[Rfam]
RNA sequence: AGACGUUCUCAGGGCGGGGUGAAAUUCCCCACCGGCGGUUAUAGCCCGCGAGCGCCUGCCACAGCGGCAGGGUCUAGCAGAUCCGGUGAAAUUCCGGGGCCGACGGUUAAAGUCCGGAUGGAAGAGGAUGGUC
Numbered sequence: 001a002g003a004c005g006u007u008c009u010c011a012g013g014g015c016g017g018g019g020u021g022a023a024a025u026u027c028c029c030c031a032c033c034g035g036c037g038g039u040u041a042u043a044g045c046c047c048g049c050g051a052g053c054g055c056c057u058g059c060c061a062c063a064g065c066g067g068c069a070g071g072g073u074c075u076a077g078c079a080g081a082u083c084c085g086g087u088g089a090a091a092u093u094c095c096g097g098g099g100c101c102g103a104c105g106g107u108u109a110a111a112g113u114c115c116g117g118a119u120g121g122a123a124g125a126g127g128a129u130g131g132u133c
Base pairs, nucleotide, nucleotide: 004130005129006128007127008126009125010124017029018028019027031113032112033102034101035049036048037047038046044100045099052078053077082098083097084096085095086094104116105115106114
RNA: FMN riboswitch aptamer (RFN element)